[Rfam]
RNA sequence: UGUGCAGGACUUGUCUAGACAGGCAUACACAGAUUGUGUUACUUGCCACCUGAACAUUCCUGCUAUAUCAGUUUAAGAAAAAUGGGCAGUUGAGUUAGGCCAGAUAUUUUACUGUGGUUUUCUCAACAAUCAUUUUUCUCAUAUUG
Number, nucleotide and partner (000 for none) at each position: 001u000002g000003u000004g063005c062006a061007g060008g059009a058010c000011u000012u000013g000014u000015c000016u000017a000018g000019a000020c000021a000022g000023g000024c000025a000026u000027a000028c000029a000030c000031a000032g000033a000034u000035u000036g000037u000038g000039u000040u000041a000042c000043u000044u000045g000046c000047c000048a000049c000050c000051u000052g000053a000054a000055c000056a000057u000058u009059c008060c007061u006062g005063c004064u000065a000066u000067a000068u000069c000070a000071g000072u000073u000074u000075a000076a139077g138078a137079a136080a135081a134082a133083u132084g131085g130086g000087c000088a000089g127090u126091u125092g124093a123094g122095u000096u000097a000098g000099g000100c000101c000102a000103g000104a000105u000106a000107u000108u000109u000110u000111a000112c000113u000114g000115u000116g000117g000118u000119u000120u000121u000122c094123u093124c092125a091126a090127c089128a000129a000130u085131c084132a083133u082134u081135u080136u079137u078138c077139u076140c000141a000142u000143a000144u000145u000146g000
Description: Shown here is a 146-nucleotide sequence from Zea mays, a member of the family "small nucleolar RNA snoR135". The family has 6 seed sequences and 837 matches in Rfam 15.1. It is annotated as an H/ACA-box small nucleolar RNA.